[Rfam]
RNA sequence: UGUUGCCCAUGAUGAUGUUCUAUAUCAAUGGGAAUCUCUCUGAAAAUAAAUAUAUGUUGAUAUUGAUAUCCUGAGGCACA
Numbered sequence: 001u002g003u004u005g006c007c008c009a010u011g012a013u014g015a016u017g018u019u020c021u022a023u024a025u026c027a028a029u030g031g032g033a034a035u036c037u038c039u040c041u042g043a044a045a046a047u048a049a050a051u052a053u054a055u056g057u058u059g060a061u062a063u064u065g066a067u068a069u070c071c072u073g074a075g076g077c078a079c080a
Stems, first nucleotide, its partner, number of pairs: 001080002004078004
About this RNA
Shown here is an 80-nucleotide RNA sequence from Rotaria sp. Silwood1, a member of the family "Small nucleolar RNA SNORD79". The match comes from Rfam's covariance-model search (48 bits). A reference for the family is Galardi et al. (2002), "Purified box C/D snoRNPs are able to reproduce site-specific 2'-O-methylation of target RNA in vitro", Mol Cell Biol. The family is grouped with related families in Rfam's "SNORD74 clan". It is annotated as a C/D-box small nucleolar RNA. Rfam links the family to the GO terms RNA processing and nucleolus. About the family: snoRNA U79 or Z22 is found in intron 7 of the gas5 gene in humans and is also present in mice.